[Rfam]
RNA sequence: UGCGUAUAUAGAGGAGCAGUUUAUUAGGUAGUUUAAGAGUGGAAAGGUACGUAAUGCCAAUAUCUUAAAUGAAGGUAUAAAUUGCCGAAAGGUAUUAUUUAUUACGGAGUAAUACACUUGGGAGUUAGGUGCACAUAAUUUAACUACUGUCAUAUCCAAAUGAUAUGAGGCGCUAUUCAGUAA
Numbered sequence: 001u002g003c004g005u006a007u008a009u010a011g012a013g014g015a016g017c018a019g020u021u022u023a024u025u026a027g028g029u030a031g032u033u034u035a036a037g038a039g040u041g042g043a044a045a046g047g048u049a050c051g052u053a054a055u056g057c058c059a060a061u062a063u064c065u066u067a068a069a070u071g072a073a074g075g076u077a078u079a080a081a082u083u084g085c086c087g088a089a090a091g092g093u094a095u096u097a098u099u100u101a102u103u104a105c106g107g108a109g110u111a112a113u114a115c116a117c118u119u120g121g122g123a124g125u126u127a128g129g130u131g132c133a134c135a136u137a138a139u140u141u142a143a144c145u146a147c148u149g150u151c152a153u154a155u156c157c158a159a160a161u162g163a164u165a166u167g168a169g170g171c172g173c174u175a176u177u178c179a180g181u182a183a
Stems, first nucleotide, its partner, number of pairs: 008176004016085009031070008089119003092115008120148002123145008150168007
Rfam assigns this 183-nucleotide sequence from Clostridium sp. 'deep sea' to the family "Lysine riboswitch aptamer". Gene Ontology term of the family: lysine biosynthetic process. It scores 79 bits against the family's covariance model.